[Rfam]
RNA: Small nucleolar RNA snR43
Organism: Saccharomyces mikatae
RNA sequence: CACUCCUGUUUCUGCCUCAUGUCCUUUUACAACGCUUCCACGGGACAUGGGUUCUAAUUAUGGAGAAGAUCAAGCUUUGAAAUGGCCCGUAUACACAUUUUGAUACAACCGUAUACGGCGUCUCGUUUCAAAGAUCGUGUGGUUGUCUAUCGAUAUAUACUCAUUGUGUUUUUAGAAAACCUUUGGGUUGUUUAGAUGCCACUAUAUUU
Numbered sequence: 001c002a003c004u005c006c007u008g009u010u011u012c013u014g015c016c017u018c019a020u021g022u023c024c025u026u027u028u029a030c031a032a033c034g035c036u037u038c039c040a041c042g043g044g045a046c047a048u049g050g051g052u053u054c055u056a057a058u059u060a061u062g063g064a065g066a067a068g069a070u071c072a073a074g075c076u077u078u079g080a081a082a083u084g085g086c087c088c089g090u091a092u093a094c095a096c097a098u099u100u101u102g103a104u105a106c107a108a109c110c111g112u113a114u115a116c117g118g119c120g121u122c123u124c125g126u127u128u129c130a131a132a133g134a135u136c137g138u139g140u141g142g143u144u145g146u147c148u149a150u151c152g153a154u155a156u157a158u159a160c161u162c163a164u165u166g167u168g169u170u171u172u173u174a175g176a177a178a179a180c181c182u183u184u185g186g187g188u189u190g191u192u193u194a195g196a197u198g199c200c201a202c203u204a205u206a207u208u209u
Stems, first nucleotide, its partner, number of pairs: 003065004016051010075133010085121002087118008139202004145197005159188005166181001168180005